[Rfam]
RNA sequence: AGCUUUGCGCAGUGGCGGUAACGUGACCAAUGAGGCUUUGCCGAGGUGCGUUUAUUGCUGGUUGAAAACUUUUCCCAAUUGCCCGCGAUGGACCCUGAAACAUGGGAUCCAUACGCAAUUUUUGAACGCCCUUAGGGG
Numbered sequence: 001a002g003c004u005u006u007g008c009g010c011a012g013u014g015g016c017g018g019u020a021a022c023g024u025g026a027c028c029a030a031u032g033a034g035g036c037u038u039u040g041c042c043g044a045g046g047u048g049c050g051u052u053u054a055u056u057g058c059u060g061g062u063u064g065a066a067a068a069c070u071u072u073u074c075c076c077a078a079u080u081g082c083c084c085g086c087g088a089u090g091g092a093c094c095c096u097g098a099a100a101c102a103u104g105g106g107a108u109c110c111a112u113a114c115g116c117a118a119u120u121u122u123u124g125a126a127c128g129c130c131c132u133u134a135g136g137g138g
Base pairs, nucleotide, nucleotide: 020052021051022050023049024048026047027046028045034042035041036040085116086115087114088112089111090110091109092108094106095105096104097103130137131136
RNA: U4 spliceosomal RNA